Rfam assigns this 53-nucleotide RNA sequence to the family "ES003 sRNA". The family's RNA type in Rfam is small RNA. Gene Ontology term of the family: fermentation. Rfam's curators write: Differentially expressed under several chemical stress and fermentation conditions. It is one of the family's seed sequences.
RNA sequence: GUUUGCCAGAAAUUCGUCGGUAAGCAGAUUUGCAUUGAUUCAUCGCAUCAUUG
Numbered sequence: 001g002u003u004u005g006c007c008a009g010a011a012a013u014u015c016g017u018c019g020g021u022a023a024g025c026a027g028a029u030u031u032g033c034a035u036u037g038a039u040u041c042a043u044c045g046c047a048u049c050a051u052u053g
Stems, first nucleotide, its partner, number of pairs: 001025007009018002033053002036050004
Dot-bracket structure: (((((((.((......))))))))).......((.((((.......)))).))